[Rfam]
RNA sequence: GAGCUGUGAGGAUACUUGUGCUUUGUGUGAUGGAUUGGGUCUAUCACUACAUCUUCAAAGAUGAAUUAUAAGUGCAACUGAGCUC
Number, nucleotide and partner (000 for none) at each position: 001g085002a084003g083004c082005u000006g000007u000008g000009a000010g000011g000012a000013u000014a000015c000016u000017u000018g000019u000020g000021c000022u000023u000024u000025g000026u000027g000028u000029g000030a000031u000032g000033g000034a000035u000036u000037g000038g000039g000040u000041c000042u000043a000044u000045c000046a000047c000048u000049a000050c000051a000052u000053c000054u000055u000056c000057a000058a000059a000060g000061a000062u000063g000064a000065a000066u000067u000068a000069u000070a000071a000072g000073u000074g000075c000076a000077a000078c000079u000080g000081a000082g004083c003084u002085c001
RNA: small nucleolar RNA snoR114
Organism: Lupinus albus